[Rfam]
RNA sequence: GGUGCGGUCGGACACUUGUCAGUUCGCUGAUAAGUCCCUGUGGCAGGGGCGCGCCAUAUAUCAACCGAUGCCGGUACGGCAUAGAUGGAGU
Number, nucleotide and partner (000 for none) at each position: 001g055002g054003u053004g052005c051006g050007g000008u000009c000010g000011g000012a000013c000014a035015c034016u033017u032018g031019u030020c029021a000022g000023u000024u000025c000026g000027c000028u000029g020030a019031u018032a017033a016034g015035u014036c000037c000038c000039u000040g000041u000042g000043g000044c000045a000046g000047g000048g000049g000050c006051g005052c004053g003054c002055c001056a000057u000058a000059u000060a000061u000062c000063a000064a000065c000066c000067g000068a082069u081070g080071c079072c078073g000074g000075u000076a000077c000078g072079g071080c070081a069082u068083a000084g000085a000086u000087g000088g000089a000090g000091u000
Notes: The family of this 91-nucleotide RNA from Chimaeribacter arupi is "KDPG-aldolase RNA". The match comes from Rfam's covariance-model search (76 bits).